[Rfam]
RNA sequence: ACACGUGAAAGGAGGUGGUCCGAGAAUUUGAUUAGCUCAUGGACAAGUGAGGUGGCUGCCCGCUAGCAGCACCGGGUGUUUACCAGCGUGCGCUGGCGAAUUCCCAGCAGUCACCCGGCCCCCGAGCCCCUCGGUCCGUCCAACCAGGAACCAACGGCUCGGGGGCCGCUCCAU
Numbered sequence: 001a002c003a004c005g006u007g008a009a010a011g012g013a014g015g016u017g018g019u020c021c022g023a024g025a026a027u028u029u030g031a032u033u034a035g036c037u038c039a040u041g042g043a044c045a046a047g048u049g050a051g052g053u054g055g056c057u058g059c060c061c062g063c064u065a066g067c068a069g070c071a072c073c074g075g076g077u078g079u080u081u082a083c084c085a086g087c088g089u090g091c092g093c094u095g096g097c098g099a100a101u102u103c104c105c106a107g108c109a110g111u112c113a114c115c116c117g118g119c120c121c122c123c124g125a126g127c128c129c130c131u132c133g134g135u136c137c138g139u140c141c142a143a144c145c146a147g148g149a150a151c152c153a154a155c156g157g158c159u160c161g162g163g164g165g166c167c168g169c170u171c172c173a174u
Stems, first nucleotide, its partner, number of pairs: 014060006061098007069091004075084002116168013130148002133145003

Shown here is a 174-nucleotide RNA from Mycobacterium sp. Root135, a member of the family "Actinobacteria sRNA Ms_IGR-5". Rfam classes the family as a small RNA. For this family Rfam cites "Identification of small RNAs in Mycobacterium smegmatis using heterologous Hfq" (Li et al., RNA, 2013).